[Rfam]
RNA: MIR5070 microRNA precursor family
RNA sequence: CAGAGUACCCUUUGACCCUCCUUAGUUCAAUCAAAUGAACUAAAAUUUUAAAAUAGCACAACAUUUUGAAAAACUAGUUCAUUUGUUUGAACUAAGAAGAGUCAAAGGGUACCCUG
Number, nucleotide and partner (000 for none) at each position: 001c000002a115003g114004a000005g112006u111007a110008c109009c108010c107011u106012u105013u104014g103015a102016c101017c000018c099019u098020c000021c096022u095023u094024a093025g092026u091027u090028c089029a088030a087031u000032c085033a084034a083035a082036u081037g080038a079039a078040c077041u076042a075043a000044a000045a000046u000047u000048u000049u000050a000051a000052a000053a000054u000055a000056g000057c000058a000059c000060a000061a000062c000063a000064u000065u000066u000067u000068g000069a000070a000071a000072a000073a000074c000075u042076a041077g040078u039079u038080c037081a036082u035083u034084u033085g032086u000087u030088u029089g028090a027091a026092c025093u024094a023095a022096g021097a000098a019099g018100a000101g016102u015103c014104a013105a012106a011107g010108g009109g008110u007111a006112c005113c000114c003115u002116g000